The family of this 383-nucleotide RNA from Janibacter alkaliphilus is "Bacterial RNase P class A". The match comes from Rfam's covariance-model search (286 bits). The organism belongs to Janibacter, within Bacteria. From the family's description: Ribonuclease P (RNase P) is a ubiquitous endoribonuclease, found in archaea, bacteria and eukarya as well as chloroplasts and mitochondria. Its best characterised activity is the generation of mature 5'-ends of tRNAs by cleaving the 5'-leader elements of precursor-tRNAs. Rfam links the family to the GO terms tRNA processing, dimeric ribonuclease P complex and ribonuclease P activity.

[Rfam]
RNA sequence: UGAGUCGGUCGGACGGUCGCGUCGGUGCUCCGGCACCGCCGAGGAAAGUCCGGGCUCCGCAGGGCAGGGUGGUGGCUAACAGCCACCCGGGGUGACCCGCGGGACAGUGCCACAGAGAACAGACCGCCACGACCCCACGGUGUGGGGCGCGGCAAGGGUGAAACGGUGGUGCAAGAGACCACCAGCGGCCCGGGUGACCGGGCCGGCUCGGUAAACCCCACCCGGAGCAAGUCCAGACAGUGCGUGAUCGAGGGCGGCCCGCCCGAGCGCACGGGUAGGACGCUGGAGGCCGUCGGCGACGGCGGCCCGAGAUGGAUGACCGUCACCCGGUCGCCGGCGACGGCGGCCGGGGACAGGACCCGGCUUACAGACCGACUCAUCCC
Numbered sequence: 001u002g003a004g005u006c007g008g009u010c011g012g013a014c015g016g017u018c019g020c021g022u023c024g025g026u027g028c029u030c031c032g033g034c035a036c037c038g039c040c041g042a043g044g045a046a047a048g049u050c051c052g053g054g055c056u057c058c059g060c061a062g063g064g065c066a067g068g069g070u071g072g073u074g075g076c077u078a079a080c081a082g083c084c085a086c087c088c089g090g091g092g093u094g095a096c097c098c099g100c101g102g103g104a105c106a107g108u109g110c111c112a113c114a115g116a117g118a119a120c121a122g123a124c125c126g127c128c129a130c131g132a133c134c135c136c137a138c139g140g141u142g143u144g145g146g147g148c149g150c151g152g153c154a155a156g157g158g159u160g161a162a163a164c165g166g167u168g169g170u171g172c173a174a175g176a177g178a179c180c181a182c183c184a185g186c187g188g189c190c191c192g193g194g195u196g197a198c199c200g201g202g203c204c205g206g207c208u209c210g211g212u213a214a215a216c217c218c219c220a221c222c223c224g225g226a227g228c229a230a231g232u233c234c235a236g237a238c239a240g241u242g243c244g245u246g247a248u249c250g251a252g253g254g255c256g257g258c259c260c261g262c263c264c265g266a267g268c269g270c271a272c273g274g275g276u277a278g279g280a281c282g283c284u285g286g287a288g289g290c291c292g293u294c295g296g297c298g299a300c301g302g303c304g305g306c307c308c309g310a311g312a313u314g315g316a317u318g319a320c321c322g323u324c325a326c327c328c329g330g331u332c333g334c335c336g337g338c339g340a341c342g343g344c345g346g347c348c349g350g351g352g353a354c355a356g357g358a359c360c361c362g363g364c365u366u367a368c369a370g371a372c373c374g375a376c377u378c379a380u381c382c383c
Base pairs, nucleotide, nucleotide: 001379002378003377004376005375006374007373008372009371010370011368012324013323014322015321016320017319018318020041021040023038024037025036026035027034028033046366047365048364050363051362052361053360054359055227056226057225058224062260063259064258065257067223068222069221070220071219072086073085074084075083076082087101088099089098090097091096102218103217107216108215109212110211111210124157125156126153127152128151130149131148133146134145165183166182167181168180169179170178185207186205187204188203189202190201191200192199193198231281232280233279234278240272241271242270243269244268245267252264253263254262255261288307289306290305291304292303293302294301295300